[Rfam]
RNA sequence: GUGCGAUGAUCGACAAAACUUAGGACACCUUUGGAUUAACCGUGAAAGGAAAAAUUGUACGUCAGGCUGAGCACA
Numbered sequence: 001g002u003g004c005g006a007u008g009a010u011c012g013a014c015a016a017a018a019c020u021u022a023g024g025a026c027a028c029c030u031u032u033g034g035a036u037u038a039a040c041c042g043u044g045a046a047a048g049g050a051a052a053a054a055u056u057g058u059a060c061g062u063c064a065g066g067c068u069g070a071g072c073a074c075a
Base pairs, nucleotide, nucleotide: 001074002073003072004071
A member of the RNA family "Small nucleolar RNA SNORD58" from Mesorhabditis spiculigera, 75 nucleotides long.
The base pairs follow the family's consensus structure, which was predicted with PFOLD.
The match comes from Rfam's covariance-model search (51 bits).
snoRNA U58 is found in introns 1, 3 and 6 of the ribosomal protein RPL17 gene in humans.
On this family, see Galardi et al., Mol Cell Biol 2002: "Purified box C/D snoRNPs are able to reproduce site-specific 2'-O-methylation of target RNA in vitro".
Rfam 15.1 lists 2,484 matches to the family in 680 species.
Its Rfam clan is "SNORD58 clan".